RNA sequence: GAUUACCAGUGUCGAAAGCCGCGCUGCGAUUCAUGCUUGCAUGAAGGAGCAGACAAGGCUUUACGACACGCCCCACGCAUGAGGAAAAAAGAGUGGAGAAGCCACUCGAUUUCCGAAUGCGAGGGAGGAUUGCGGGAGCUGUGUGCAGCGGAGCAAUCCGGUAAUC
Number, nucleotide and partner (000 for none) at each position: 001g166002a165003u164004u163005a162006c161007c160008a000009g000010u068011g067012u066013c065014g000015a000016a061017a060018g059019c058020c057021g000022c000023g054024c052025u051026g050027c049028g000029a000030u046031u044032c043033a042034u041035g040036c000037u000038u000039g000040c035041a034042u033043g032044a031045a000046g030047g000048a000049g027050c026051a025052g024053a000054c023055a000056a000057g020058g019059c018060u017061u016062u000063a000064c000065g013066a012067c011068a010069c000070g000071c000072c000073c124074c123075a000076c121077g120078c119079a118080u117081g000082a000083g114084g113085a112086a111087a000088a000089a000090a000091g107092a106093g105094u104095g103096g102097a000098g000099a000100a000101g000102c096103c095104a094105c093106u092107c091108g000109a000110u000111u086112u085113c084114c083115g000116a000117a080118u079119g078120c077121g076122a000123g074124g073125g000126a000127g159128g158129a157130u156131u155132g154133c153134g000135g000136g000137a000138g149139c148140u147141g146142u000143g000144u000145g000146c141147a140148g139149c138150g000151g000152a000153g133154c132155a131156a130157u129158c128159c127160g007161g006162u005163a004164a003165u002166c001

Background
The record is a 166-nucleotide sequence from Oscillospiraceae bacterium Marseille-Q3528, which matches "Clostridiales-1 RNA" in Rfam. The source organism's lineage runs through Bacteria, Bacillota, Clostridia, Eubacteriales and Oscillospiraceae.